[Rfam]
RNA sequence: UGAUAAUAAAUGGAUCAAAGUCCAGAAAUCUCAUGCUUGCAUGAAAGAUUUCUGGACCUUGAGACAUAAACACACAUGAGGAAAAAGCACGAUAGUGCGGUUUCCGAAUGUGUGCAUGAAUUGCGAGAACGAAGUGGAGCAAUUCAUGUUAUUA
Numbered sequence: 001u002g003a004u005a006a007u008a009a010a011u012g013g014a015u016c017a018a019a020g021u022c023c024a025g026a027a028a029u030c031u032c033a034u035g036c037u038u039g040c041a042u043g044a045a046a047g048a049u050u051u052c053u054g055g056a057c058c059u060u061g062a063g064a065c066a067u068a069a070a071c072a073c074a075c076a077u078g079a080g081g082a083a084a085a086a087g088c089a090c091g092a093u094a095g096u097g098c099g100g101u102u103u104c105c106g107a108a109u110g111u112g113u114g115c116a117u118g119a120a121u122u123g124c125g126a127g128a129a130c131g132a133a134g135u136g137g138a139g140c141a142a143u144u145c146a147u148g149u150u151a152u153u154a
Base pairs, nucleotide, nucleotide: 001154002153003152004151005150006149007148010067011066012065016061017060018059020057021056022055023054024053025052026051027050028049029048030047031046032043033042034041035040071114072113073112074111075110076109077108080105081104082103083102087098088097089096090095118145119144120143121142122141123140124139129135130134